[Rfam]
RNA: Small nucleolar RNA SNORA25
Organism: Phyllostomus discolor
RNA sequence: AGGUCAUUUCAAAGAGAGUUUAUGGGACCAAAACCAGGAACUCUUAAUGCUGUGACCUAAGAUUGAAGUUCUCCAUAAGAUGUAAUAGACAUUCAAUAGUGCUCUGUUUUCCUGAGAAGAUAUAAAA
Numbered sequence: 001a002g003g004u005c006a007u008u009u010c011a012a013a014g015a016g017a018g019u020u021u022a023u024g025g026g027a028c029c030a031a032a033a034c035c036a037g038g039a040a041c042u043c044u045u046a047a048u049g050c051u052g053u054g055a056c057c058u059a060a061g062a063u064u065g066a067a068g069u070u071c072u073c074c075a076u077a078a079g080a081u082g083u084a085a086u087a088g089a090c091a092u093u094c095a096a097u098a099g100u101g102c103u104c105u106g107u108u109u110u111c112c113u114g115a116g117a118a119g120a121u122a123u124a125a126a127a
Stems, first nucleotide, its partner, number of pairs: 002057006014045008023037001026035001070120003074116001077113001079111002085105001087103002090101004